The record is a 132-nucleotide RNA from Otolemur garnettii, which matches "U11 spliceosomal RNA" in Rfam. NCBI's taxonomy places the organism under Eukaryota, Opisthokonta, Teleostomi, Lorisiformes, Otolemur. The family's consensus secondary structure is taken from published work.
[Rfam]
RNA sequence: AAAUAGCCAGGCUUCUGUUGUGAGUGGCACACGUGGGGCAACUCGACUGCUCUUCGAGCGGAAUCAAUAUCAAGAGAGGAAACACAAUUUUUGGUACCUGGGAAGCUGGUGAUUAUUGGUCCGGGUGCCUGC
Dot-bracket structure: ..........(.((((((((....)))))(.((.((((((.......)))))).)).)(....((..........)))))).)................(((..(((.(.((((...))))).))).)))..